[Rfam]
RNA sequence: GCGGACAUAGCUCAGUUGGGAGAGCGUCAGACUGAAGUAUGGGUCUCCACUACUCAUUGAAAACUUCAUUCAAUCAAUCUGAAGGUCGUGUGUUCAAUCCACACUGGCCGCA
Numbered sequence: 001g002c003g004g005a006c007a008u009a010g011c012u013c014a015g016u017u018g019g020g021a022g023a024g025c026g027u028c029a030g031a032c033u034g035a036a037g038u039a040u041g042g043g044u045c046u047c048c049a050c051u052a053c054u055c056a057u058u059g060a061a062a063a064c065u066u067c068a069u070u071c072a073a074u075c076a077a078u079c080u081g082a083a084g085g086u087c088g089u090g091u092g093u094u095c096a097a098u099c100c101a102c103a104c105u106g107g108c109c110g111c112a
Stems, first nucleotide, its partner, number of pairs: 001111004006106002010025004027082005088104005

This 112-nucleotide RNA sequence from Colletotrichum tofieldiae belongs to the Rfam family "tRNA". The source organism's lineage runs through Eukaryota, Pezizomycotina, sordariomyceta, Colletotrichum and Colletotrichum spaethianum species complex. The family has 954 seed sequences and 5,335,975 matches in Rfam 15.1. Gene Ontology term of the family: triplet codon-amino acid adaptor activity. Transfer RNA (tRNA) molecules are approximately 80 nucleotides in length.